[Rfam]
RNA sequence: GUGAAAUAAAUCACAAAACAAACAUACACCCCUUUGUUUGAACGUGAACAUUUCUCCCAUCCCCUUUGUGAAAAAGAAGCGUCUCUAUCGGUCGAGGAUAGAGGCGUUUCUUU
Numbered sequence: 001g002u003g004a005a006a007u008a009a010a011u012c013a014c015a016a017a018a019c020a021a022a023c024a025u026a027c028a029c030c031c032c033u034u035u036g037u038u039u040g041a042a043c044g045u046g047a048a049c050a051u052u053u054c055u056c057c058c059a060u061c062c063c064c065u066u067u068g069u070g071a072a073a074a075a076g077a078a079g080c081g082u083c084u085c086u087a088u089c090g091g092u093c094g095a096g097g098a099u100a101g102a103g104g105c106g107u108u109u110c111u112u113u
Stems, first nucleotide, its partner, number of pairs: 003054005011047004019040006076110014